[Rfam]
RNA sequence: AACGACGCGAGCUCUGCGAGCGGUUGGAAGCCCAAUCCAAAGCUGCGGGGCGAUGAACAAAAACCGGAUAUGAGGCGUGAUGCAUCCGGGGCGAGCGGGCACGUGACCGCGAAGCCCGCCAUCUGCGGCUGGGGUGCAUUUUGUAAAUCCGGCGUCCACGCAGCGAAGGUAACGCGU
Number, nucleotide and partner (000 for none) at each position: 001a000002a015003c000004g013005a000006c011007g000008c000009g000010a000011g006012c000013u004014c000015u002016g000017c000018g000019a000020g000021c000022g000023g000024u000025u000026g000027g000028a000029a000030g177031c176032c000033c174034a000035a000036u000037c000038c169039a000040a000041a000042g164043c163044u162045g161046c160047g159048g157049g156050g155051c154052g153053a000054u000055g000056a000057a000058c000059a000060a000061a000062a000063a000064c152065c151066g150067g149068a148069u147070a000071u000072g000073a000074g000075g144076c143077g142078u000079g140080a139081u138082g137083c136084a135085u134086c000087c000088g000089g117090g116091g115092c114093g000094a000095g110096c109097g108098g107099g000100c000101a000102c000103g000104u000105g000106a000107c098108c097109g096110c095111g000112a000113a000114g092115c091116c090117c089118g000119c000120c000121a000122u000123c000124u000125g000126c000127g000128g000129c000130u000131g000132g000133g000134g085135u084136g083137c082138a081139u080140u079141u000142u077143g076144u075145a000146a000147a069148u068149c067150c066151g065152g064153c052154g051155u050156c049157c048158a000159c047160g046161c045162a044163g043164c042165g000166a000167a000168g000169g038170u000171a000172a000173c000174g033175c000176g031177u030
Group II catalytic intron D1-D4-3: a 177-nucleotide RNA sequence from Candidatus Accumulibacter sp. SK-11. A search with the family's covariance model found it, with a score of 104 bits. The organism belongs to Candidatus Accumulibacter, within Bacteria. The pairing is the family consensus, mapped onto this sequence.